Shown here is a 90-nucleotide RNA sequence from Sphingopyxis panaciterrulae, a member of the family "Glycine riboswitch aptamer". The match comes from Rfam's covariance-model search (44 bits). NCBI's taxonomy places the organism under Bacteria, Pseudomonadati, Alphaproteobacteria, Sphingomonadales, Sphingopyxis.

RNA sequence: CGCGCGGGAGAGCGCGGGGGCGGGGAAACCCGAACCUCGCCACCGAAGGAGCAACCGCCCCGGAAACUCUCAGGUCUCAGGGACCGCGCG
Numbered sequence: 001c002g003c004g005c006g007g008g009a010g011a012g013c014g015c016g017g018g019g020g021c022g023g024g025g026a027a028a029c030c031c032g033a034a035c036c037u038c039g040c041c042a043c044c045g046a047a048g049g050a051g052c053a054a055c056c057g058c059c060c061c062g063g064a065a066a067c068u069c070u071c072a073g074g075u076c077u078c079a080g081g082g083a084c085c086g087c088g089c090g
Base pairs, nucleotide, nucleotide: 001090002089003088004087005086006085007084014040015039016038017037018036019035042075043074044073045071046070049069050068051067055063056062